[Rfam]
RNA sequence: UGUGCAAAUGAUGAUAAUCUAUACAGGGACAUCCGAUCUCUUAAUUAGAGGGAGUGAUGAUUUGUCGUGGGAAUCUCUCUGAUGCAUA
Numbered sequence: 001u002g003u004g005c006a007a008a009u010g011a012u013g014a015u016a017a018u019c020u021a022u023a024c025a026g027g028g029a030c031a032u033c034c035g036a037u038c039u040c041u042u043a044a045u046u047a048g049a050g051g052g053a054g055u056g057a058u059g060a061u062u063u064g065u066c067g068u069g070g071g072a073a074u075c076u077c078u079c080u081g082a083u084g085c086a087u088a
Stems, first nucleotide, its partner, number of pairs: 002087005
The family of this 88-nucleotide sequence from Trifolium medium is "Small nucleolar RNA R44/J54/Z268 family". A search with the family's covariance model found it, with a score of 71 bits. Its family is annotated with nucleolus and RNA processing in the Gene Ontology. Its Rfam clan is "SNORD74 clan".